A member of the RNA family "lysM-TM7 RNA", 144 nucleotides long.
The family's RNA type in Rfam is cis-regulatory element.
It is one of the family's seed sequences.
RNA sequence: GCCUGCCUUUAAAUGUCGUACGAGCACCGAAAUCAAUUUUUUUAAUAUCAUAAUAAAAUCGGUCGACGUGUGUGCUCCGUUCUCUUGAAUAAGAGAAGAAAGACAGAGUGAGGUAGUAGCGCGCUAGUAAUAGAUGCGCAGGAG
Numbered sequence: 001g002c003c004u005g006c007c008u009u010u011a012a013a014u015g016u017c018g019u020a021c022g023a024g025c026a027c028c029g030a031a032a033u034c035a036a037u038u039u040u041u042u043u044a045a046u047a048u049c050a051u052a053a054u055a056a057a058a059u060c061g062g063u064c065g066a067c068g069u070g071u072g073u074g075c076u077c078c079g080u081u082c083u084c085u086u087g088a089a090u091a092a093g094a095g096a097a098g099a100a101a102g103a104c105a106g107a108g109u110g111a112g113g114u115a116g117u118a119g120c121g122c123g124c125u126a127g128u129a130a131u132a133g134a135u136g137c138g139c140a141g142g143a144g
Stems, first nucleotide, its partner, number of pairs: 003116007014105004022077006080097007119139005124133003